[Rfam]
RNA sequence: CGUGCGGUCAUUGGGGAGUAGCCGUCCUUCCGCCCCGAAGGAGCUUGCAUCAACACACUUGGCCCUCGCGGCCAUGGUGCAAGCAGCAUCCAGCCUGGCAAGACCUUUGACUACGCCGCCACCCCUCGGCCGGGAGGCGCGUAGUCAUUGGACUUCGUUCAUCCCGGCCUGGAGCAUU
Number, nucleotide and partner (000 for none) at each position: 001c000002g000003u000004g000005c000006g000007g000008u000009c000010a000011u000012u000013g000014g000015g000016g000017a000018g000019u000020a000021g000022c000023c000024g000025u000026c041027c040028u039029u000030c000031c000032g000033c000034c000035c000036c000037g000038a000039a028040g027041g026042a000043g084044c083045u082046u081047g080048c079049a078050u077051c076052a075053a000054c000055a000056c000057a000058c000059u000060u074061g073062g072063c071064c070065c000066u000067c000068g000069c000070g064071g063072c062073c061074a060075u052076g051077g050078u049079g048080c047081a046082a045083g044084c043085a177086g000087c000088a000089u173090c172091c171092a000093g000094c000095c000096u000097g000098g000099c000100a000101a000102g000103a000104c000105c000106u000107u000108u000109g000110a000111c000112u000113a000114c000115g000116c000117c000118g000119c000120c000121a000122c000123c000124c000125c000126u000127c000128g000129g000130c000131c000132g000133g000134g000135a000136g000137g000138c000139g000140c000141g000142u000143a000144g000145u000146c000147a000148u000149u000150g000151g000152a000153c000154u000155u000156c000157g000158u000159u000160c000161a000162u000163c000164c000165c000166g000167g000168c000169c000170u000171g091172g090173a089174g000175c000176a000177u085178u000
This 178-nucleotide RNA from Caenimonas aquaedulcis belongs to the Rfam family "Manganese Mn2+ riboswitch aptamer (yybP-ykoY)". About the family: This RNA was originally discovered in E. coli during a large scale screen and was named SraF. The family was later found to exist upstream of related families of protein genes in many bacteria, including the the yybP and ykoK genes in B. subtilis. The specific functions of these proteins are unknown, but this structured RNA element may be involved in their genetic regulation as a riboswitch. A reference for the family is Argaman et al. (2001), "Novel small RNA-encoding genes in the intergenic regions of Escherichia coli", Curr Biol. Pairs were carried over by alignment from the consensus structure.